[Rfam]
RNA sequence: ACCGAGGUGAGCCACAGAGGGUCGGACUGCCCGACCGCCUCGUCGCCCAUCUGGUCGCCGUCGGUGACGACCCCGACGAUCUCCUCCUCGCCGUACUUGCCCGCCGCGUACCGGGUGAACCUGCCGUGCACCACGAGGUACGCCUCGGUGACCGGCUGUCCGGCCUCGAACAGCACCUGUCCCGCGCGCACCUCGCGGGCCUGGAAACGGCCGGCGACCUCGGUCAGCACCUCCAGGUCGUCGUAGCCGCGCAGGAUGGGCAGUUCGGUGAGCGUGUGCGGGAUGACCCGGAUGUCGUCCCCGCCGUUGUGCUCGAAGCUCACCCGGCCGCGCCCCGUGCGCAGUUGGAGGCGCCGGUUGACCCGGUAGGUGCCGCCCUUGACGUCCACCCACGGCAGUGUCUUCAGCAGCCAUCGGGAGGUGAUGGCCUGCAUCUGCGGUUCGGACUUGGUGGUCGUGGCGAGCUGGCGUGCCGCCCGGGUGCUCAGGCUGGUGAGCUGCCGGU
Dot-bracket structure: .....((((.((..(((..((..((.(.(..((((.(.(..(..(.(.(.(((((((.(((.......(.(....(((.(.........).)))....)).....))).....(((...(...(..(.((((.(.(((..((.....(.(((.((.((..((....))..))...)).))).)...))..))).).))...))..)..)...)...))).)))))))....(((..((((((.....((((..(..(.(......).)....).))))...))))))..)))..).).)..)).)))))..).....).))..))..)((((.....)))).........(.(.(((...(((.....))).))).).)))..)).))))((.(.((.(((.(((.(.......))))..))).)).).)).....((((..((...((.((.......)).))....))..))))((.(((.(.(......).).)))...)).
Background
Saccharopolyspora sRNA 350: a 505-nucleotide RNA sequence from Streptomyces filipinensis. For this family Rfam cites "Prediction and characterization of small non-coding RNAs related to secondary metabolites in Saccharopolyspora erythraea" (Liu et al., PLoS One, 2013). Its family is annotated with regulation of secondary metabolite biosynthetic process in the Gene Ontology. NCBI's taxonomy places the organism under Bacteria, Bacillati, Actinomycetes, Kitasatosporales, Streptomyces.